RNA sequence: AAGAAGGGCUUCUAUUGUGAGUGGCUCACGUAUGACAACUUGAUUGCUUUAUGUGCAAAAUCCACAGCAAAAGAUUUUGGAAGCAUGAUUUUUUAGUGCCUGGGCACCUGGUGAUCACUGGUUCUGAUGCCCAU
Numbered sequence: 001a002a003g004a005a006g007g008g009c010u011u012c013u014a015u016u017g018u019g020a021g022u023g024g025c026u027c028a029c030g031u032a033u034g035a036c037a038a039c040u041u042g043a044u045u046g047c048u049u050u051a052u053g054u055g056c057a058a059a060a061u062c063c064a065c066a067g068c069a070a071a072a073g074a075u076u077u078u079g080g081a082a083g084c085a086u087g088a089u090u091u092u093u094u095a096g097u098g099c100c101u102g103g104g105c106a107c108c109u110g111g112u113g114a115u116c117a118c119u120g121g122u123u124c125u126g127a128u129g130c131c132c133a134u
Stems, first nucleotide, its partner, number of pairs: 008084005015024003027055006034048001036046003056079007102132004109126003113123004
RNA: U11 spliceosomal RNA
Organism: Molossus molossus